[Rfam]
Source information: Rfam assigns this 98-nucleotide RNA sequence from Alysiella crassa to the family "TPP riboswitch aptamer (THI element)". The organism belongs to Alysiella, within Bacteria.

RNA sequence: AUUUUUUAGUCGGGGUGCUGCCACAAACAAGGCAGCUGAGAAACACCCGUGAACCUGAUACAGUUAGCACUGGCGUAGGAAACUAAAAUGAAUUUAGC
Number, nucleotide and partner (000 for none) at each position: 001a000002u000003u000004u000005u000006u086007u085008a084009g083010u082011c049012g048013g047014g046015g000016u043017g036018c035019u034020g033021c032022c000023a000024c000025a000026a000027a000028c000029a000030a000031g000032g021033c020034a019035g018036c017037u000038g000039a000040g000041a000042a000043a016044c000045a000046c014047c013048c012049g011050u000051g000052a000053a000054c079055c078056u077057g076058a000059u000060a000061c072062a071063g070064u000065u000066a000067g000068c000069a000070c063071u062072g061073g000074c000075g000076u057077a056078g055079g054080a000081a000082a010083c009084u008085a007086a006087a000088a000089u000090g000091a000092a000093u000094u000095u000096a000097g000098c000
From the family's description: Vitamin B(1) in its active form thiamin pyrophosphate (TPP) is an essential coenzyme that is synthesised by coupling of pyrimidine and thiazole moieties in bacteria.